[Rfam]
RNA sequence: AUUUAAGGUAGAGGUGCGAUUUUUAUUAGUAACGAUAAGGAGUUAAGCAACGUUGAAUUAUUGUGAAAGGGAACAUCGCCGAAGCAUAUAACUGAAGCUUUAAGGUUAUUUAGCUGGGGAUAUAUAUAAUAUGUAUAUCACUGUCACUAAGAAAUUAGUGGUGAGCUAUCAAAUGG
Number, nucleotide and partner (000 for none) at each position: 001a000002u000003u000004u000005a000006a000007g170008g169009u168010a167011g166012a000013g000014g000015u000016g079017c078018g077019a076020u075021u000022u073023u072024u071025a000026u000027u000028a000029g000030u000031a000032a064033c063034g062035a061036u060037a059038a058039g000040g000041a000042g000043u000044u000045a000046a000047g000048c000049a000050a000051c000052g000053u000054u000055g000056a000057a000058u038059u037060a036061u035062u034063g033064u032065g000066a000067a000068a000069g000070g000071g024072a023073a022074c000075a020076u019077c018078g017079c016080c000081g000082a000083a115084g114085c113086a111087u000088a109089u108090a107091a106092c105093u104094g000095a000096a000097g000098c000099u000100u000101u000102a000103a000104g093105g092106u091107u090108a089109u088110u000111u086112a000113g085114c084115u083116g142117g141118g000119g139120a138121u137122a136123u135124a134125u133126a132127u000128a000129a000130u000131a000132u126133g125134u124135a123136u122137a121138u120139c119140a000141c117142u116143g000144u161145c160146a159147c158148u157149a156150a155151g000152a000153a000154a000155u150156u149157a148158g147159u146160g145161g144162u000163g000164a000165g000166c011167u010168a009169u008170c007171a000172a000173a000174u000175g000176g000
Lysine riboswitch aptamer: a 176-nucleotide RNA sequence from Terrisporobacter othiniensis. The base pairs follow the family's consensus structure, which is taken from published work. The match comes from Rfam's covariance-model search (115 bits). Riboswitches are metabolite binding domains within certain messenger RNAs that serve as precision sensors for their corresponding targets.